Annotation:
This 67-nucleotide RNA from Mandrillus leucophaeus belongs to the Rfam family "mir-1255 microRNA precursor family". The family has 11 seed sequences and 61 matches in Rfam 15.1.
RNA sequence: CCUUACAGAUGAGCAAAGAAAGUGGUUUCCUGAGGCUCAAACCACUUUCUUUGCUUAUCUGUAAGAA
Numbered sequence: 001c002c003u004u005a006c007a008g009a010u011g012a013g014c015a016a017a018g019a020a021a022g023u024g025g026u027u028u029c030c031u032g033a034g035g036c037u038c039a040a041a042c043c044a045c046u047u048u049c050u051u052u053g054c055u056u057a058u059c060u061g062u063a064a065g066a067a
Stems, first nucleotide, its partner, number of pairs: 002065004007060022
The literature on the family includes a 2010 paper in BMC Res Notes by Brameier, "Genome-wide comparative analysis of microRNAs in three non-human primates".